This 141-nucleotide sequence from Xenopus laevis belongs to the Rfam family "Small nucleolar RNA U109". It scores 82 bits against the family's covariance model.

[Rfam]
RNA sequence: UUGCAUGCUGGGAAAUGUGUAGUAUUCCUGCUUUUGUGGAACACUCUUUAACCUUUGCAUGCAAUAUUAUAUAGUUAAGGAGUUAUCAGGGCUGCCAGCUGUUAAGUACAGGCUGAGUGGUAGUAUAUCACUCCUACAUUA
Numbered sequence: 001u002u003g004c005a006u007g008c009u010g011g012g013a014a015a016u017g018u019g020u021a022g023u024a025u026u027c028c029u030g031c032u033u034u035u036g037u038g039g040a041a042c043a044c045u046c047u048u049u050a051a052c053c054u055u056u057g058c059a060u061g062c063a064a065u066a067u068u069a070u071a072u073a074g075u076u077a078a079g080g081a082g083u084u085a086u087c088a089g090g091g092c093u094g095c096c097a098g099c100u101g102u103u104a105a106g107u108a109c110a111g112g113c114u115g116a117g118u119g120g121u122a123g124u125a126u127a128u129c130a131c132u133c134c135u136a137c138a139u140u141a
Stems, first nucleotide, its partner, number of pairs: 003062006021045003025041004079134004091121002095117001096115005
It is annotated as an H/ACA-box small nucleolar RNA. Rfam 15.1 lists 1,405 matches to the family in 622 species. For this family Rfam cites "A novel experimental approach for systematic identification of box H/ACA snoRNAs from eukaryotes" (Gu et al., Nucleic Acids Res, 2005).